A member of the RNA family "Mammalian CPEB3 ribozyme" from Laticauda laticaudata, 65 nucleotides long. The match comes from Rfam's covariance-model search (72 bits). From the family's description: The mammalian CPEB3 ribozyme is a self cleaving RNA located in the second intron of the CPEB3 gene which belongs to a family of genes regulating messenger RNA polyadenylation. This ribozyme is highly conserved and found only in mammals. The CPEB3 ribozyme is structurally and biochemically related to the human hepatitis delta virus (HDV) ribozyme and the HDV ribozyme is proposed to have arisen from the human transcriptome. There is currently only one other known self cleaving ribozyme in mammals, the CoTC motif.
RNA sequence: GGGCCAUAGAAGGAGCGUUCACGUCGCGGCCCCUGUCAGGUAUCUGUUUACCUGCGAAUCCUUCU
Numbered sequence: 001g002g003g004c005c006a007u008a009g010a011a012g013g014a015g016c017g018u019u020c021a022c023g024u025c026g027c028g029g030c031c032c033c034u035g036u037c038a039g040g041u042a043u044c045u046g047u048u049u050a051c052c053u054g055c056g057a058a059u060c061c062u063u064c065u
Stems, first nucleotide, its partner, number of pairs: 001032005008065007015027003037054006